[Rfam]
RNA sequence: UGGCUGUGACGACAGAUUACAUUUCUCGAUUCUGAUAAAUCUUUGAUUUGUCGACCUCUGUGAUGAUCUAUUUAUGCGUGUCUGAGCCAA
Numbered sequence: 001u002g003g004c005u006g007u008g009a010c011g012a013c014a015g016a017u018u019a020c021a022u023u024u025c026u027c028g029a030u031u032c033u034g035a036u037a038a039a040u041c042u043u044u045g046a047u048u049u050g051u052c053g054a055c056c057u058c059u060g061u062g063a064u065g066a067u068c069u070a071u072u073u074a075u076g077c078g079u080g081u082c083u084g085a086g087c088c089a090a
Stems, first nucleotide, its partner, number of pairs: 001089004

Shown here is a 90-nucleotide sequence from Zingiber officinale, a member of the family "small nucleolar RNA snoR126". NCBI's taxonomy places the organism under Eukaryota, Streptophyta, Tracheophyta, Liliopsida, Zingiber.